RNA sequence: AUUGUUACCCUAACAUAAACACUAACUUUGGAUAAAUGCAGUAAGUGCUUUUGUUGGGUUAGUUUAC
Numbered sequence: 001a002u003u004g005u006u007a008c009c010c011u012a013a014c015a016u017a018a019a020c021a022c023u024a025a026c027u028u029u030g031g032a033u034a035a036a037u038g039c040a041g042u043a044a045g046u047g048c049u050u051u052u053g054u055u056g057g058g059u060u061a062g063u064u065u066a067c
Stems, first nucleotide, its partner, number of pairs: 004063004009058003013054003017050002020047004025042003
Record summary: Rfam assigns this 67-nucleotide sequence from Labrus bergylta to the family "miR-430 microRNA precursor family". The base pairs follow the family's consensus structure, which was predicted with RNAalifold. Rfam 15.1 lists 24,817 matches to the family in 105 species. Its Rfam clan is "mir-290 clan". On this family, see Giraldez et al., Science 2005: "MicroRNAs regulate brain morphogenesis in zebrafish". Rfam links the family to the GO terms RISC complex and miRNA-mediated post-transcriptional gene silencing.